[Rfam]
RNA sequence: UUACUCUGGUUUCUCUUCAAUCCACGAAUAAAUCUUUCGCCUUUUACUAAAGAUUUCCGUGGGGAGGAACAAAUUAAUGAGUCUAGAACUCAAUUUGUCUAAACCCCUCUUCGGAGGGGUA
Numbered sequence: 001u002u003a004c005u006c007u008g009g010u011u012u013c014u015c016u017u018c019a020a021u022c023c024a025c026g027a028a029u030a031a032a033u034c035u036u037u038c039g040c041c042u043u044u045u046a047c048u049a050a051a052g053a054u055u056u057c058c059g060u061g062g063g064g065a066g067g068a069a070c071a072a073a074u075u076a077a078u079g080a081g082u083c084u085a086g087a088a089c090u091c092a093a094u095u096u097g098u099c100u101a102a103a104c105c106c107c108u109c110u111u112c113g114g115a116g117g118g119g120u121a
Stems, first nucleotide, its partner, number of pairs: 003082004009070011030056008103120006
Rfam assigns this 121-nucleotide sequence from Capitella teleta to the family "U5 spliceosomal RNA".
The organism belongs to Capitella, within Eukaryota.
A search with the family's covariance model found it, with a score of 91 bits.